Shown here is a 94-nucleotide RNA from Tursiops truncatus, a member of the family "Small nucleolar RNA SNORD116". Gene Ontology terms of the family: nucleolus and RNA processing. Taxonomically the source falls in Tursiops (Eukaryota, Opisthokonta, Deuterostomia, Teleostomi). Rfam 15.1 lists 3,260 matches to the family in 170 species. Rfam classes the family as a C/D-box small nucleolar RNA. The family's consensus secondary structure was predicted with PFOLD.

RNA sequence: GUAUUAAAAAGAGACAGUAUAGUAUGCAUUCCUUGGAAAAUCUGAACAAAAUGAGUGAGAACACUCUACCGUCUCCUCAUCGAAUCUGAGGUCC
Dot-bracket structure: (.(((.....................(((((.(((...........)))...)))))................................))).)
Numbered sequence: 001g002u003a004u005u006a007a008a009a010a011g012a013g014a015c016a017g018u019a020u021a022g023u024a025u026g027c028a029u030u031c032c033u034u035g036g037a038a039a040a041u042c043u044g045a046a047c048a049a050a051a052u053g054a055g056u057g058a059g060a061a062c063a064c065u066c067u068a069c070c071g072u073c074u075c076c077u078c079a080u081c082g083a084a085u086c087u088g089a090g091g092u093c094c
Stems, first nucleotide, its partner, number of pairs: 001094001003092003027057005033049003